[Rfam]
RNA sequence: ACGUAACUAUUAAACAAUAUUAUUUUUAUGAACUCGGUCAGGUCUGGAAAGAAGCAGCCGUAAUAAAAAUAACAUGUGUAAAAAAUAGUUACGUUAU
Dot-bracket structure: ...(((((.((..((.((.(((.((((((.....((((....(((....)))....))))..)))))).))).)))..)..))...)))))......
Numbered sequence: 001a002c003g004u005a006a007c008u009a010u011u012a013a014a015c016a017a018u019a020u021u022a023u024u025u026u027u028a029u030g031a032a033c034u035c036g037g038u039c040a041g042g043u044c045u046g047g048a049a050a051g052a053a054g055c056a057g058c059c060g061u062a063a064u065a066a067a068a069a070u071a072a073c074a075u076g077u078g079u080a081a082a083a084a085a086u087a088g089u090u091a092c093g094u095u096a097u
Stems, first nucleotide, its partner, number of pairs: 004091005010083002014079001015076001017075002020072003024068006035060004043052003